[Rfam]
The family of this 69-nucleotide RNA sequence from Medicago truncatula is "MIR2629 microRNA precursor family".

RNA sequence: UGUUGAAGUUUUUCUCGGUAGUUAACUACAGCCGGUUCUAUAAUUCGGCAGUUAACUGCCGAGGAGUAU
Numbered sequence: 001u002g003u004u005g006a007a008g009u010u011u012u013u014c015u016c017g018g019u020a021g022u023u024a025a026c027u028a029c030a031g032c033c034g035g036u037u038c039u040a041u042a043a044u045u046c047g048g049c050a051g052u053u054a055a056c057u058g059c060c061g062a063g064g065a066g067u068a069u
Stems, first nucleotide, its partner, number of pairs: 012065002015062013029048001